[Rfam]
c-di-AMP riboswitch aptamer (ydaO/yuaA leader): a 163-nucleotide RNA from Paenibacillus hemerocallicola. The organism belongs to Paenibacillus, within Bacteria. It scores 68 bits against the family's covariance model.
RNA sequence: GUAAGCAAAACGGCAUCUCUAUCCAAGAGUGCGGGGGAAUUUUCAUUACGGCAAUGCGGCGCCAUGCCCAUUCCGUUCGGGGUGAAUCGCGCGAAUCGCGCGUAGGGUUGUAUCCUCAAUCCGAAUCCGACAACUAACCUCGUAGGCGAUAAAAAAGGAGUGA
Numbered sequence: 001g002u003a004a005g006c007a008a009a010a011c012g013g014c015a016u017c018u019c020u021a022u023c024c025a026a027g028a029g030u031g032c033g034g035g036g037g038a039a040u041u042u043u044c045a046u047u048a049c050g051g052c053a054a055u056g057c058g059g060c061g062c063c064a065u066g067c068c069c070a071u072u073c074c075g076u077u078c079g080g081g082g083u084g085a086a087u088c089g090c091g092c093g094a095a096u097c098g099c100g101c102g103u104a105g106g107g108u109u110g111u112a113u114c115c116u117c118a119a120u121c122c123g124a125a126u127c128c129g130a131c132a133a134c135u136a137a138c139c140u141c142g143u144a145g146g147c148g149a150u151a152a153a154a155a156a157g158g159a160g161u162g163a
Base pairs, nucleotide, nucleotide: 011148012147014145019029020028031143032142033141034140035139036138041079080128081127082126088102089101090100091099105122106121107120108119